About this RNA:
This 430-nucleotide sequence from Deinococcus cavernae belongs to the Rfam family "Bacterial RNase P class A". The family's RNA type in Rfam is ribozyme. Taxonomically the source falls in Deinococcus (Bacteria, Thermotogati, Deinococci, Deinococcales). It scores 230 bits against the family's covariance model. Ribonuclease P (RNase P) is a ubiquitous endoribonuclease, found in archaea, bacteria and eukarya as well as chloroplasts and mitochondria. Its best characterised activity is the generation of mature 5'-ends of tRNAs by cleaving the 5'-leader elements of precursor-tRNAs. Cellular RNase Ps are ribonucleoproteins. RNA from bacterial RNase Ps retains its catalytic activity in the absence of the protein subunit, i.e. it is a ribozyme.
[Rfam]
RNA sequence: GCGGGGGAACUCCUGGUCGCGCCCUCAGUGCCAUGAGUACUGGGGGUGAGGAAAGUCCGGGCACCGCAGGGCAAGGAUGCCAGCUAACGGCUGGUCGGCGAGUCAAGCGCCCGCACGAGCGCAGCGGCGUGCGGGUGGCGGCGAAGCCGAAGGAAAGUGCCACAGAAACCAGACCGCCUUUCCCCUUAAGCCCCGGCGCGGGUGGGGAAAGGUCAGGGUGAAACGGUGCGGUAAGAGCGCACCAGGCCCGGCGGAGACGCGGGGCGCUGGUAAACCCCAUCCGGUGCAAGACCCGACCGUACGCGAGGGCGGCCCGCCCGUUGACCGUCAGGAUGGUCGCUGGAAGUGCGCGGCGACGCGUACUCAAGAGAGAUGACCAGGCAGCCACGCGAGUGGCGGACAGAACCCGGCUUACAAGUCCCCCGCACCA
Number, nucleotide and partner (000 for none) at each position: 001g426002c425003g424004g423005g422006g421007g420008a419009a000010c000011u000012c381013c380014u379015g378016g377017u376018c375019g000020c048021g047022c046023c045024c044025u043026c042027a041028g040029u039030g038031c000032c000033a000034u000035g000036a000037g000038u030039a029040c028041u027042g026043g025044g024045g023046g022047u021048g020049a000050g000051g000052a000053a413054a412055g411056u000057c410058c409059g408060g407061g406062c286063a285064c284065c283066g000067c000068a000069g000070g315071g314072c000073a000074a000075g282076g281077a280078u279079g278080c094081c093082a092083g091084c090085u000086a000087a000088c000089g000090g084091c083092u082093g081094g080095u151096c149097g148098g147099c146100g000101a000102g000103u000104c000105a000106a000107g000108c000109g000110c000111c000112c000113g000114c000115a000116c000117g000118a000119g000120c000121g000122c000123a000124g000125c000126g000127g000128c000129g000130u000131g000132c000133g000134g000135g000136u000137g000138g000139c000140g000141g000142c000143g000144a000145a000146g099147c098148c097149g096150a000151a095152g277153g276154a000155a000156a000157g275158u274159g271160c270161c269162a000163c000164a000165g000166a000167a000168a000169c000170c000171a000172g000173a000174c217175c216176g213177c212178c211179u210180u209181u208182c207183c206184c205185c000186u000187u000188a000189a000190g000191c000192c000193c000194c000195g000196g000197c000198g000199c000200g000201g000202g000203u000204g000205g184206g183207g182208a181209a180210a179211g178212g177213u176214c000215a000216g175217g174218g000219u000220g000221a000222a000223a000224c000225g243226g242227u241228g240229c239230g238231g000232u000233a000234a000235g000236a000237g000238c230239g229240c228241a227242c226243c225244a000245g267246g265247c264248c263249c262250g000251g260252c259253g258254g000255a000256g000257a000258c253259g252260c251261g000262g249263g248264g247265c246266g000267c245268u000269g161270g160271u159272a000273a000274a158275c157276c153277c152278c079279a078280u077281c076282c075283g065284g064285u063286g062287c000288a000289a000290g338291a337292c336293c335294c000295g329296a328297c327298c000299g325300u324301a000302c000303g000304c000305g000306a000307g319308g318309g317310c316311g000312g000313c000314c071315c070316g310317c309318c308319c307320g000321u000322u000323g000324a300325c299326c000327g297328u296329c295330a000331g000332g000333a000334u000335g293336g292337u291338c290339g000340c000341u000342g000343g000344a000345a364346g363347u362348g361349c360350g359351c358352g357353g000354c000355g000356a000357c352358g351359c350360g349361u348362a347363c346364u345365c000366a000367a000368g000369a000370g000371a000372g000373a000374u000375g018376a017377c016378c015379a014380g013381g012382c000383a000384g000385c000386c000387a000388c000389g000390c000391g000392a000393g000394u000395g000396g000397c000398g000399g000400a000401c000402a000403g000404a000405a000406c061407c060408c059409g058410g057411c055412u054413u053414a000415c000416a000417a000418g000419u008420c007421c006422c005423c004424c003425g002426c001427a000428c000429c000430a000